[Rfam]
RNA sequence: AGCAGAGUAGAAAUUAAGCACGGAAAGCCGGGCAGACGGGGAGUUGCUGUCUGGUUGAAAAAGGUUUGUAUGCCUUUUAAAAUGCUGGUUUCGCAUCCCGCUGCU
Numbered sequence: 001a002g003c004a005g006a007g008u009a010g011a012a013a014u015u016a017a018g019c020a021c022g023g024a025a026a027g028c029c030g031g032g033c034a035g036a037c038g039g040g041g042a043g044u045u046g047c048u049g050u051c052u053g054g055u056u057g058a059a060a061a062a063g064g065u066u067u068g069u070a071u072g073c074c075u076u077u078u079a080a081a082a083u084g085c086u087g088g089u090u091u092c093g094c095a096u097c098c099c100g101c102u103g104c105u
Stems, first nucleotide, its partner, number of pairs: 001105005010092006017086004025056002028054008039098003043094001060078004
RNA: THF (Tetrahydrofolate) riboswitch aptamer
Organism: bacterium 1XD42-8